[Rfam]
RNA sequence: UUGAUAGUGAUGUCAUGGGUGAAGGAAGUGGUGUAGCAAUUCUUUUGAGCGUACGAACAGAAACUUGAUGAGGCUAAAUAGUGGAUUAGGUUGUUACACAAGCCGAAGUCCAAAAGGUAAACGUAAAACCAAGGCAGUAAAUCAAGAUGUUGUGAAAGAAAUAGGACGCAU
Numbered sequence: 001u002u003g004a005u006a007g008u009g010a011u012g013u014c015a016u017g018g019g020u021g022a023a024g025g026a027a028g029u030g031g032u033g034u035a036g037c038a039a040u041u042c043u044u045u046u047g048a049g050c051g052u053a054c055g056a057a058c059a060g061a062a063a064c065u066u067g068a069u070g071a072g073g074c075u076a077a078a079u080a081g082u083g084g085a086u087u088a089g090g091u092u093g094u095u096a097c098a099c100a101a102g103c104c105g106a107a108g109u110c111c112a113a114a115a116g117g118u119a120a121a122c123g124u125a126a127a128a129c130c131a132a133g134g135c136a137g138u139a140a141a142u143c144a145a146g147a148u149g150u151u152g153u154g155a156a157a158g159a160a161a162u163a164g165g166a167c168g169c170a171u
Stems, first nucleotide, its partner, number of pairs: 002015005031169002037164001041159005047153001048151005064146005073138003079131001081129002083111004089104004
The record is a 171-nucleotide RNA from Thomasclavelia cocleata, which matches "Group II catalytic intron D1-D4-3" in Rfam. On this family, see Bonen and Vogel, Trends Genet 2001: "The ins and outs of group II introns". The source organism's lineage runs through Bacteria, Erysipelotrichia, Erysipelotrichales, Coprobacillaceae and Thomasclavelia. From the family's description: Group II introns are found in rRNA, tRNA and mRNA of organelles in fungi, plants and protists, and also in mRNA in bacteria.